[Rfam]
RNA sequence: GAGAUGUGAUCAAGAUCAGACUACCAAAUCCUACAGCAUUUGAGGUCUCUACUUGCUCAAUAUCA
Numbered sequence: 001g002a003g004a005u006g007u008g009a010u011c012a013a014g015a016u017c018a019g020a021c022u023a024c025c026a027a028a029u030c031c032u033a034c035a036g037c038a039u040u041u042g043a044g045g046u047c048u049c050u051a052c053u054u055g056c057u058c059a060a061u062a063u064c065a
Base pairs, nucleotide, nucleotide: 003064004063005062006061007060008058009057011055012054013053014052018048019047020046021045022044025042026041027040028039029038
Dot-bracket structure: ..(((((((.((((...(((((..(((((........))))).)))))...)))).)).))))).